[Rfam]
RNA sequence: GUCCCUAUCCGGGCCCCUCUGGCGGUGCCGGCAGUCCCGUCUGUUCGCCGGGCUGCCAGCCGCGAUGUCGGAUGCGUGCA
Numbered sequence: 001g002u003c004c005c006u007a008u009c010c011g012g013g014c015c016c017c018u019c020u021g022g023c024g025g026u027g028c029c030g031g032c033a034g035u036c037c038c039g040u041c042u043g044u045u046c047g048c049c050g051g052g053c054u055g056c057c058a059g060c061c062g063c064g065a066u067g068u069c070g071g072a073u074g075c076g077u078g079c080a
Base pairs, nucleotide, nucleotide: 006074007073008072009071010070011069012068022063023062024061025060026059
RNA: terC RNA